[Rfam]
The family of this 365-nucleotide RNA from Diaminobutyricimonas aerilata is "Bacterial RNase P class A". Lineage of the source: Bacteria > Actinomycetota > Actinomycetes > Micrococcales > Diaminobutyricimonas.
RNA sequence: ACGGGCCGGCAGACGGUCGCGUCGCCCGCUUCGGCGGGUGCCGAGGAACGUCCGGGCUCCACAGAGCAGGGCGGUGGGUAACACCCACCCGGAGUGAUCCGCGAGAAAGUGCAACAGAGAGCAGACCGCCGCGCGCAAGCGCGGUAAGGGUGAAACGGUGGUGUAAGAGACCACCAGGCGCCCGAGUGAUCGGGUGCGCUGGGUAAACCUCGCCCGGAGCAAGGUCAGACAGACGCCUAUGAGGUUGCUCGCCUCGGCGUCGGGUGGACCGCUAGAGGGCUGCGGUGACGCAGUCCCGAGAGAGAUGACCGUCGAAGGUGCCUCGUGCACUGGAACAGAACCCGGCGUAUCGCCGGCCCGUUUGC
Dot-bracket structure: ((((((((((((((((((.((.((((((......)))))).))....[[[.[[[[[((((...[[[[.((((((((((.....)))))(((((....)))).)((...((((.............(((((((((....)))))))..)).......((((((.......)))))).(((((((((....)))))))).)...))..)))))))))))))...((((.....((((((...(((((.]]]]))))))))))).....))))......((((((((....))))))))..........)))))))...........................]]]]]]]].).))))))))))....
From the family's description: Ribonuclease P (RNase P) is a ubiquitous endoribonuclease, found in archaea, bacteria and eukarya as well as chloroplasts and mitochondria.